[Rfam]
RNA: DUF3800-I RNA
RNA sequence: UUUAAUUACAGGUAGUUAUACGCUGUAUACUUGUGUAACUGAAUUAACGUUUAAGCGAAGUGUAUUCUUCGUCAGUCGCAAGGGGGUCGCUUAAGUUGAUUAGGCGACCCUAUUUUAUUUG
Numbered sequence: 001u002u003u004a005a006u007u008a009c010a011g012g013u014a015g016u017u018a019u020a021c022g023c024u025g026u027a028u029a030c031u032u033g034u035g036u037a038a039c040u041g042a043a044u045u046a047a048c049g050u051u052u053a054a055g056c057g058a059a060g061u062g063u064a065u066u067c068u069u070c071g072u073c074a075g076u077c078g079c080a081a082g083g084g085g086g087u088c089g090c091u092u093a094a095g096u097u098g099a100u101u102a103g104g105c106g107a108c109c110c111u112a113u114u115u116u117a118u119u120u121g
Stems, first nucleotide, its partner, number of pairs: 007027005012021003030082006038076004042051003055072006083111012